[Rfam]
RNA: mir-192/215 microRNA precursor family
RNA sequence: ACAGGAAAUUGACCUAUAAACUGACAGAUAAUACGGCUCCAUUUGUCUGUCAUUUCUGUAGGCCAAUAUUCUGC
Numbered sequence: 001a002c003a004g005g006a007a008a009u010u011g012a013c014c015u016a017u018a019a020a021c022u023g024a025c026a027g028a029u030a031a032u033a034c035g036g037c038u039c040c041a042u043u044u045g046u047c048u049g050u051c052a053u054u055u056c057u058g059u060a061g062g063c064c065a066a067u068a069u070u071c072u073g074c
Base pairs, nucleotide, nucleotide: 002073003072004071005070006069008067010065011064013062014061015060016059019055020054022052023051024050025049026048027047028046029045030044031043